[Rfam]
RNA sequence: GGCAUGGGGACAAAGCGAUCUCCCCACGAGGCGACAUGCCCAAGUAUCGCGUCCCGCAUUCCUGCAAGGACGCGCCAUG
Numbered sequence: 001g002g003c004a005u006g007g008g009g010a011c012a013a014a015g016c017g018a019u020c021u022c023c024c025c026a027c028g029a030g031g032c033g034a035c036a037u038g039c040c041c042a043a044g045u046a047u048c049g050c051g052u053c054c055c056g057c058a059u060u061c062c063u064g065c066a067a068g069g070a071c072g073c074g075c076c077a078u079g
Stems, first nucleotide, its partner, number of pairs: 005026006049073006

Shown here is a 79-nucleotide RNA sequence from Tardiphaga robiniae, a member of the family "chrB-a RNA". NCBI's taxonomy places the organism under Bacteria, Pseudomonadati, Pseudomonadota, Nitrobacteraceae, Tardiphaga. The match comes from Rfam's covariance-model search (82 bits). Rfam 15.1 lists 347 matches to the family in 339 species. The family's RNA type in Rfam is cis-regulatory element.